[Rfam]
RNA sequence: UUUGGUAUGCGCGACUGGCGUAAACGUGGAGUACCACGAGGGAGCACAUAUUUAUACAGCCGUACGCCUGGGCAGAGGUA
Numbered sequence: 001u002u003u004g005g006u007a008u009g010c011g012c013g014a015c016u017g018g019c020g021u022a023a024a025c026g027u028g029g030a031g032u033a034c035c036a037c038g039a040g041g042g043a044g045c046a047c048a049u050a051u052u053u054a055u056a057c058a059g060c061c062g063u064a065c066g067c068c069u070g071g072g073c074a075g076a077g078g079u080a
Stems, first nucleotide, its partner, number of pairs: 004052006011045002015041002017068005026037004057075001059073003
A member of the RNA family "ZMP/ZTP riboswitch aptamer (pfl RNA motif)" from Paenibacillus abyssi, 80 nucleotides long. Pairs were carried over by alignment from the consensus structure, which is taken from published work. Rfam links the family to the GO terms one-carbon metabolic process and regulation of purine nucleotide biosynthetic process. Taxonomically the source falls in Paenibacillus (Bacteria, Bacillota, Bacilli, Caryophanales).